The family of this 87-nucleotide RNA from Allolucifera butyrica is "c-di-GMP-I riboswitch aptamer".
A search with the family's covariance model found it, with a score of 74 bits.
Rfam 15.1 lists 5,092 matches to the family in 1,772 species.
Lineage of the source: Bacteria > Bacillati > Negativicutes > Veillonellaceae > Allolucifera.
GEMM was predicted in a large-scale screen for bacterial structured RNA regulatory elements. Genes associated with GEMM are involved in a diverse array of functions, including chemotaxis regulation, signal transduction, secretion and chitin.
[Rfam]
RNA sequence: GAUGAUAUUGGGCAAACUUGCCGAAAGGCAAGGGCGCAAAGCCAUGGGUCUAAGAGCCGUCAAGCUUACGAUUGCCAGGUUGCGACU
Numbered sequence: 001g002a003u004g005a006u007a008u009u010g011g012g013c014a015a016a017c018u019u020g021c022c023g024a025a026a027g028g029c030a031a032g033g034g035c036g037c038a039a040a041g042c043c044a045u046g047g048g049u050c051u052a053a054g055a056g057c058c059g060u061c062a063a064g065c066u067u068a069c070g071a072u073u074g075c076c077a078g079g080u081u082g083c084g085a086c087u
Base pairs, nucleotide, nucleotide: 012037013036017032018031019030020029021028022027040081041080042079043078045077046076047075048072049071050070055066056065057064